[Rfam]
RNA: Small nucleolar RNA SNORD121A
RNA sequence: GUCCAAAAUACAGUAAUGUUGUCUUUUCCAAGCAUGUAUCUAAUUGCUCUGUGUGGAAAAUUACUGUUGCUAAGUGAUUUUUGGAU
Numbered sequence: 001g002u003c004c005a006a007a008a009u010a011c012a013g014u015a016a017u018g019u020u021g022u023c024u025u026u027u028c029c030a031a032g033c034a035u036g037u038a039u040c041u042a043a044u045u046g047c048u049c050u051g052u053g054u055g056g057a058a059a060a061u062u063a064c065u066g067u068u069g070c071u072a073a074g075u076g077a078u079u080u081u082u083g084g085a086u
Stems, first nucleotide, its partner, number of pairs: 001086006008079001009076003